The family of this 73-nucleotide sequence from Sulfobacillus harzensis is "tRNA".
The base pairs follow the family's consensus structure, which is taken from published work.
Transfer RNA (tRNA) molecules are approximately 80 nucleotides in length.
[Rfam]
RNA sequence: UGGGGAGUCGCCAAGUUGGUAAGGCACGGGACUUUGGAUCCCGCACGCGCAGGUUCGAGUCCUGCCUCCCCAG
Numbered sequence: 001u002g003g004g005g006a007g008u009c010g011c012c013a014a015g016u017u018g019g020u021a022a023g024g025c026a027c028g029g030g031a032c033u034u035u036g037g038a039u040c041c042c043g044c045a046c047g048c049g050c051a052g053g054u055u056c057g058a059g060u061c062c063u064g065c066c067u068c069c070c071c072a073g
Stems, first nucleotide, its partner, number of pairs: 001072007010025003027043005049065005